RNA: U4atac minor spliceosomal RNA
Organism: Acanthoscelides obtectus
RNA sequence: UCCUUCCUUGUCUAGGGGAGCGGAGUGUGUCAAUGAGCGUCUAGUGAGACCACUUUUGCUGAUACCCUAUAAAAAAUGCCCGCACCCACCACAUGUUGGAGAGUGCAAUUUUUGGAAGC
Numbered sequence: 001u002c003c004u005u006c007c008u009u010g011u012c013u014a015g016g017g018g019a020g021c022g023g024a025g026u027g028u029g030u031c032a033a034u035g036a037g038c039g040u041c042u043a044g045u046g047a048g049a050c051c052a053c054u055u056u057u058g059c060u061g062a063u064a065c066c067c068u069a070u071a072a073a074a075a076a077u078g079c080c081c082g083c084a085c086c087c088a089c090c091a092c093a094u095g096u097u098g099g100a101g102a103g104u105g106c107a108a109u110u111u112u113u114g115g116a117a118g119c
Stems, first nucleotide, its partner, number of pairs: 005019005020059004024054004029050003037045002082106004087101001088097001090095001